[Rfam]
RNA sequence: GCCGGGCGUGGUGGCGCGCUGCUGUAGUCCGGGCUACUCCGGAUGCUGAGGUGGGAGGAUCGCUUGAGUCCAGGAGUUCUGGGCUGCAGUGUACUAUGCCGAUCACGUGUCCGCACUAGGUUUGGCAUCAAUAGGGUGACCUCUCCGAAGCGGGGGAUCACCAGGUUGCCUAAGGCGGAAUGAACCGGCCCAGGUUGGAAACGGAGCAGGUCAAAACUCCCGCGCUGAUCAGUAGUGGGACUGCACCUGUGAGUAGCCACUGCACUCCAGCCUGGGCAAUACAGUGAGACCCCUUCCCUU
Dot-bracket structure: ((.((..(((......)))..))....(((..........))).)).(.((.(((....(((((...(((((((....(((((.(((((((..((((.(....((.((((((.(((((.(.(((((.(((((..(((((.(((((......))))).)))))..))))((...)).(((.(.....((((....(((....)))....))))...).))).).))))).)..)))))))...)))).)).).)))).))))))).)))))))))))).....)))))...))).)).)..
Numbered sequence: 001g002c003c004g005g006g007c008g009u010g011g012u013g014g015c016g017c018g019c020u021g022c023u024g025u026a027g028u029c030c031g032g033g034c035u036a037c038u039c040c041g042g043a044u045g046c047u048g049a050g051g052u053g054g055g056a057g058g059a060u061c062g063c064u065u066g067a068g069u070c071c072a073g074g075a076g077u078u079c080u081g082g083g084c085u086g087c088a089g090u091g092u093a094c095u096a097u098g099c100c101g102a103u104c105a106c107g108u109g110u111c112c113g114c115a116c117u118a119g120g121u122u123u124g125g126c127a128u129c130a131a132u133a134g135g136g137u138g139a140c141c142u143c144u145c146c147g148a149a150g151c152g153g154g155g156g157a158u159c160a161c162c163a164g165g166u167u168g169c170c171u172a173a174g175g176c177g178g179a180a181u182g183a184a185c186c187g188g189c190c191c192a193g194g195u196u197g198g199a200a201a202c203g204g205a206g207c208a209g210g211u212c213a214a215a216a217c218u219c220c221c222g223c224g225c226u227g228a229u230c231a232g233u234a235g236u237g238g239g240a241c242u243g244c245a246c247c248u249g250u251g252a253g254u255a256g257c258c259a260c261u262g263c264a265c266u267c268c269a270g271c272c273u274g275g276g277c278a279a280u281a282c283a284g285u286g287a288g289a290c291c292c293c294u295u296c297c298c299u300u
Stems, first nucleotide, its partner, number of pairs: 001046002004023002008019003028043003048298001050296002053293003060287005068277007079270005085264007094256004099251001104249002107246004111239002114237005120230001122228005128222001129168004135162005141156005169175002177220003181216001187212004195204003